Annotation:
This 133-nucleotide RNA from Blastococcus sp. CT_GayMR16 belongs to the Rfam family "Guanidine-I riboswitch aptamer". Gene Ontology term of the family: regulation of gene expression. It scores 64 bits against the family's covariance model. Lineage of the source: Bacteria > Actinomycetes > Geodermatophilales > Geodermatophilaceae > Blastococcus.
[Rfam]
RNA sequence: CCGGGGCGCACCUAGGGUUCCGCUGCCGUCCGGGCGCACGACGGGCGACAGGCCUGGUCCGAGAGGUGCAUGCACGGACGUCGUCCGAUCUGGCCGGCCCCGUGUUCCACGGCGGGACAAAAGCCCGGGAGGU
Numbered sequence: 001c002c003g004g005g006g007c008g009c010a011c012c013u014a015g016g017g018u019u020c021c022g023c024u025g026c027c028g029u030c031c032g033g034g035c036g037c038a039c040g041a042c043g044g045g046c047g048a049c050a051g052g053c054c055u056g057g058u059c060c061g062a063g064a065g066g067u068g069c070a071u072g073c074a075c076g077g078a079c080g081u082c083g084u085c086c087g088a089u090c091u092g093g094c095c096g097g098c099c100c101c102g103u104g105u106u107c108c109a110c111g112g113c114g115g116g117a118c119a120a121a122a123g124c125c126c127g128g129g130a131g132g133u
Stems, first nucleotide, its partner, number of pairs: 008069005015060002020057002022054001023051003027047006072105006108128001110131001114126003